Description: A member of the RNA family "Guanidine-II riboswitch aptamer (mini-ykkC)" from Hyalella azteca, 47 nucleotides long. Taxonomically the source falls in Hyalella (Eukaryota, Protostomia, Peracarida, Talitroidea). It scores 36 bits against the family's covariance model. Rfam's curators write: Simpler in structure and has fewer highly conserved nucleotide positions than the ykkC-yxkD leader.

[Rfam]
RNA sequence: CAUGCAGGACGGCCUGCACCUGCCAUGUAUCAUGCAGGACGGCCUGC
Numbered sequence: 001c002a003u004g005c006a007g008g009a010c011g012g013c014c015u016g017c018a019c020c021u022g023c024c025a026u027g028u029a030u031c032a033u034g035c036a037g038g039a040c041g042g043c044c045u046g047c
Stems, first nucleotide, its partner, number of pairs: 003018006034047005